[Rfam]
RNA sequence: AAAAAGGGUAGGCCUUUUCUGGGGCUGGGCUGUCCGCAGCCACAGGUGAAUCGCGAUCAAGAGAUUUGCCCUACAGAAUUUCUUCACCGCUGGCAGUGUCGGCUUCAUGAGCUACCAUUGCCAG
Numbered sequence: 001a002a003a004a005a006g007g008g009u010a011g012g013c014c015u016u017u018u019c020u021g022g023g024g025c026u027g028g029g030c031u032g033u034c035c036g037c038a039g040c041c042a043c044a045g046g047u048g049a050a051u052c053g054c055g056a057u058c059a060a061g062a063g064a065u066u067u068g069c070c071c072u073a074c075a076g077a078a079u080u081u082c083u084u085c086a087c088c089g090c091u092g093g094c095a096g097u098g099u100c101g102g103c104u105u106c107a108u109g110a111g112c113u114a115c116c117a118u119u120g121c122c123a124g
Stems, first nucleotide, its partner, number of pairs: 008074005013024004025045003028041005046069007092122007102112004
RNA: U11 spliceosomal RNA
Organism: Aphanomyces invadans